[Rfam]
Source information:
The record is a 311-nucleotide RNA from Allobosea sp. LC85, which matches "5' ureB small RNA" in Rfam. On this family, see Wen et al., J Bacteriol 2013: "Helicobacter pylori 5'ureB-sRNA, a cis-encoded antisense small RNA, negatively regulates ureAB expression by transcription termination". Its family is annotated with negative regulation of gene expression in the Gene Ontology. NCBI's taxonomy places the organism under Bacteria, Pseudomonadati, Alphaproteobacteria, Alloboseaceae, Allobosea.

RNA sequence: CGUCCUCGAUCUGCUGCGGACAGAUAUAAUGGAUAUGGCUGUCGAAGCCGCCGGCGGUGAUGAUCUUGCCUUCGCCGGCGAUGACCUCGGUACCCGGGCCGACGAUGAUGGUCUCGGACGGAUCGAAAUUCCCAAACCCGUCCUGGAUAUCCGGAUUCCCGGCCUUGCCGAUGGCGCAGAUGCGCCCGGCCCGGAUACCGAUAUCGGCUUUGACGAUGCCCCAGUGGUCGAGGAUCAGCGCGUUGGUGAUGACGGUGUCGACCGCGCCACCGGCAUUGCUGACCUGGCUCUGGCCCAUGCCGUCACGGAUG
Numbered sequence: 001c002g003u004c005c006u007c008g009a010u011c012u013g014c015u016g017c018g019g020a021c022a023g024a025u026a027u028a029a030u031g032g033a034u035a036u037g038g039c040u041g042u043c044g045a046a047g048c049c050g051c052c053g054g055c056g057g058u059g060a061u062g063a064u065c066u067u068g069c070c071u072u073c074g075c076c077g078g079c080g081a082u083g084a085c086c087u088c089g090g091u092a093c094c095c096g097g098g099c100c101g102a103c104g105a106u107g108a109u110g111g112u113c114u115c116g117g118a119c120g121g122a123u124c125g126a127a128a129u130u131c132c133c134a135a136a137c138c139c140g141u142c143c144u145g146g147a148u149a150u151c152c153g154g155a156u157u158c159c160c161g162g163c164c165u166u167g168c169c170g171a172u173g174g175c176g177c178a179g180a181u182g183c184g185c186c187c188g189g190c191c192c193g194g195a196u197a198c199c200g201a202u203a204u205c206g207g208c209u210u211u212g213a214c215g216a217u218g219c220c221c222c223a224g225u226g227g228u229c230g231a232g233g234a235u236c237a238g239c240g241c242g243u244u245g246g247u248g249a250u251g252a253c254g255g256u257g258u259c260g261a262c263c264g265c266g267c268c269a270c271c272g273g274c275a276u277u278g279c280u281g282a283c284c285u286g287g288c289u290c291u292g293g294c295c296c297a298u299g300c301c302g303u304c305a306c307g308g309a310u311g
Stems, first nucleotide, its partner, number of pairs: 001311003005307001008304002011179004016175002018076002022072002030053003034050001037048001040045001057069003077169002081165001083163001085161001089159002092156001094154002096151002103145001105144001107142003110138002184294001186293003191287004196282001199278001207241002210238003221230001246274001255267003